[Rfam]
A member of the RNA family "ASpks TB sRNA" from Streptomyces albireticuli, 75 nucleotides long.
RNA sequence: CUUGAUCGAUCCCAGCAGCAGCGGGCGGCCGGCUUCCCGGUCCUGGCCGUAGGUGGCCAGCAGCGCCUGCGCCUC
Numbered sequence: 001c002u003u004g005a006u007c008g009a010u011c012c013c014a015g016c017a018g019c020a021g022c023g024g025g026c027g028g029c030c031g032g033c034u035u036c037c038c039g040g041u042c043c044u045g046g047c048c049g050u051a052g053g054u055g056g057c058c059a060g061c062a063g064c065g066c067c068u069g070c071g072c073c074u075c
Stems, first nucleotide, its partner, number of pairs: 016024001032070002038065002043060003047056003

The base pairs follow the family's consensus structure, which is taken from published work. The family's RNA type in Rfam is antisense RNA.